[Rfam]
RNA sequence: CCGCCCGUCGCUACUACCGAUCGAACGAUUUAGUGAGGUCUUUGGACUCGUGCGCGGUGUUUCGCUCGCGUUCGCGCGCGCGCGAUCCUUCGCAGUCGCGAGGAAGACGACCGAACUUAAUCGUUUAGAGGAAGUAAAAGUCGUAACAAGGUUUCCGUAGGUGAACCUGCGGAAGGAUCAUUA
Numbered sequence: 001c002c003g004c005c006c007g008u009c010g011c012u013a014c015u016a017c018c019g020a021u022c023g024a025a026c027g028a029u030u031u032a033g034u035g036a037g038g039u040c041u042u043u044g045g046a047c048u049c050g051u052g053c054g055c056g057g058u059g060u061u062u063c064g065c066u067c068g069c070g071u072u073c074g075c076g077c078g079c080g081c082g083c084g085a086u087c088c089u090u091c092g093c094a095g096u097c098g099c100g101a102g103g104a105a106g107a108c109g110a111c112c113g114a115a116c117u118u119a120a121u122c123g124u125u126u127a128g129a130g131g132a133a134g135u136a137a138a139a140g141u142c143g144u145a146a147c148a149a150g151g152u153u154u155c156c157g158u159a160g161g162u163g164a165a166c167c168u169g170c171g172g173a174a175g176g177a178u179c180a181u182u183a
Stems, first nucleotide, its partner, number of pairs: 001150001003147001006143002009140001012136004017131002021127001023126008032117003037112004042107002047102006152175010

Annotation:
A member of the RNA family "Eukaryotic small subunit ribosomal RNA" from Pediculus humanus, 183 nucleotides of a longer RNA. The source organism's lineage runs through Eukaryota, Ecdysozoa, Pediculidae, Pediculus and Pediculus humanus. The literature on the family includes a 2001 paper in Science by Yusupov et al., "Crystal structure of the ribosome at 5.5 A resolution". The family is grouped with related families in Rfam's "SSU clan".